[Rfam]
RNA sequence: CUCCCUCAGCCUUACUCCGGGGGCUCUUGCUGUAGAGUGCCCUGGCAUUGCCUGGGGGGACACGAGGAAGCGCAGAUCCCUCCCCAGGAAGACCCCGUUCUCCUGUGGGGCCUACCCAUCGCGCUGACAGC
Number, nucleotide and partner (000 for none) at each position: 001c000002u000003c058004c057005c056006u055007c054008a053009g052010c000011c050012u000013u000014a000015c000016u000017c045018c044019g043020g042021g041022g040023g038024c037025u036026c035027u034028u000029g000030c000031u000032g000033u000034a027035g026036a025037g024038u023039g000040c022041c021042c020043u019044g018045g017046c000047a000048u000049u000050g011051c000052c009053u008054g007055g006056g005057g004058g003059g000060a000061c000062a000063c000064g000065a000066g000067g000068a000069a125070g124071c123072g000073c121074a000075g000076a000077u000078c000079c000080c000081u000082c110083c109084c108085c107086a106087g000088g000089a104090a000091g102092a101093c000094c000095c000096c000097g000098u000099u000100c000101u092102c091103c000104u089105g000106u086107g085108g084109g083110g082111c000112c000113u000114a000115c000116c000117c000118a000119u000120c000121g073122c000123g071124c070125u069126g000127a000128c000129a000130g000131c000
Small nucleolar RNA SNORA49: a 131-nucleotide sequence from Cnephaeus nilssonii. The organism belongs to Cnephaeus, within Eukaryota. The snoRNA ACA49 has no identified RNA target. NB genomic sequence 1-nt different from published. Rfam classes the family as an H/ACA-box small nucleolar RNA. Gene Ontology terms of the family: RNA processing and nucleolus.